[Rfam]
RNA sequence: UGUUAAAAGUUCCAUCUAUUUUUACUAUUAAAAAUUAGUUCCUAUAUGCCAGCAUGAGGUACACGUGAUAUGUCACGUGCGACUGUCGAUUAUUUCGUCAGCCAAGCUGAUUUUUAAGAGCAAAAAUGGGUAAAAUUUUUAACA
Numbered sequence: 001u002g003u004u005a006a007a008a009g010u011u012c013c014a015u016c017u018a019u020u021u022u023u024a025c026u027a028u029u030a031a032a033a034a035u036u037a038g039u040u041c042c043u044a045u046a047u048g049c050c051a052g053c054a055u056g057a058g059g060u061a062c063a064c065g066u067g068a069u070a071u072g073u074c075a076c077g078u079g080c081g082a083c084u085g086u087c088g089a090u091u092a093u094u095u096c097g098u099c100a101g102c103c104a105a106g107c108u109g110a111u112u113u114u115u116a117a118g119a120g121c122a123a124a125a126a127u128g129g130g131u132a133a134a135a136u137u138u139u140u141a142a143c144a
Stems, first nucleotide, its partner, number of pairs: 002143010014131003018127006025120002028117006
RNA: MIR7502 microRNA precursor family
Organism: Gossypium klotzschianum